FuFi-1 RNA: a 170-nucleotide RNA. Rfam classes the family as a small RNA. Rfam's curators put it in the seed alignment. Pairs were carried over by alignment from the consensus structure, which is taken from published work.
Nucleotides: 170
Stems, first nucleotide, its partner, number of pairs: 001059007032047004038132005060113002063110003073093007080155007094103003138166011
Number, partner (000 for none) and nucleotide at each position: 001059u002058c003057c004056g005055u006054c007053a008000a009000c010000u011000a012000a013000u014000g015000g016000g017000c018000u019000a020000u021000u022000a023000u024000a025000u026000u027000u028000u029000u030000g031000c032047g033046c034045a035044g036000a037000a038132c039131u040130a041129a042128a043000a044035c045034u046033g047032c048000a049000u050000a051000a052000g053007u054006g055005a056004c057003g058002g059001a060113g061112u062000c063110c064109u065108u066000g067000a068000u069000a070000g071000a072000a073093g074092c075091a076090u077089u078088u079087a080155g081154c082153u083152c084151c085150a086149u087079u088078a089077a090076a091075u092074g093073u094103g095102g096101u097000g098000a099000a100000a101096a102095c103094c104000u105000g106000c107000a108065a109064a110063g111000u112061a113060c114000a115000u116000a117000g118000g119000g120000u121000u122000a123000a124000a125000a126000a127000a128042u129041u130040u131039a132038g133000c134000a135000u136000u137000u138166a139165a140164c141163u142162g143161u144160u145159a146158g147157g148156a149086a150085u151084g152083g153082a154081g155080c156148u157147c158146c159145u160144a161143a162142c163141a164140g165139u166138u167000u168000u169000u170000u